[Rfam]
RNA sequence: AUUUCGUCUGUUCUAAUACCAAGGGUCAUGACGUUGACCCUUUGGCUUCGCUUUCAGACAAAAUUAAUUCUUUAAAUUUAUCCUGGUGUUGUUUUCCUGUUUGUGAAUAUUACACCGGCCUUUUAAAGAUACAAAU
Dot-bracket structure: .....(((((........(((((((.((......))..))))))).........)))))..............(..((....((((((........................)))))).......))..)......